[Rfam]
RNA sequence: GCUCUGGUCGGAAACCAGGGCACGAAGAAGGAG
Numbered sequence: 001g002c003u004c005u006g007g008u009c010g011g012a013a014a015c016c017a018g019g020g021c022a023c024g025a026a027g028a029a030g031g032a033g
Stems, first nucleotide, its partner, number of pairs: 001021008

Overview: The record is a 33-nucleotide sequence, which matches "L31-Coriobacteria ribosomal protein leader" in Rfam. It is one of the family's seed sequences. The family is grouped with related families in Rfam's "Ribosomal Protein L31 Leader clan".